Notes
The family of this 133-nucleotide RNA from Vitis vinifera is "MIR845_2 microRNA precursor family". Taxonomically the source falls in Vitis (Eukaryota, Magnoliopsida, eudicotyledons, Vitaceae). Rfam 15.1 lists 180 matches to the family in 2 species. For this family Rfam cites "The grapevine genome sequence suggests ancestral hexaploidization in major angiosperm phyla" (Jaillon et al., Nature, 2007). Its family is annotated with miRNA-mediated post-transcriptional gene silencing and RISC complex in the Gene Ontology. A search with the family's covariance model found it, with a score of 104 bits.
Nucleotides: 133
Base pairs, nucleotide, nucleotide: 009123011121012120013119014118015117016116023110024109025108026107027106030103032101033100034099051087055082056081058079059078062075063074064073065072
Number, partner (000 for none) and nucleotide at each position: 001000a002000a003000a004000a005000c006000g007000u008000a009123c010000a011121u012120u013119a014118a015117u016116u017000a018000a019000u020000c021000c022000u023110u024109g025108g026107g027106g028000c029000c030103a031000u032101g033100g034099g035000a036000u037000a038000a039000a040000a041000a042000a043000a044000a045000u046000a047000c048000c049000c050000c051087g052000c053000a054000a055082a056081a057000a058079c059078a060000a061000g062075u063074u064073a065072g066000g067000a068000c069000a070000u071000c072065c073064u074063a075062g076000a077000a078059u079058g080000g081056u082055u083000c084000u085000a086000g087051c088000a089000u090000g091000a092000u093000u094000a095000c096000a097000a098000a099034c100033c101032u102000u103030u104000c105000a106027c107026u108025c109024u110023g111000a112000u113000a114000c115000u116016a117015g118014u119013u120012g121011a122000a123009g124000g125000g126000a127000a128000a129000a130000a131000u132000c133000a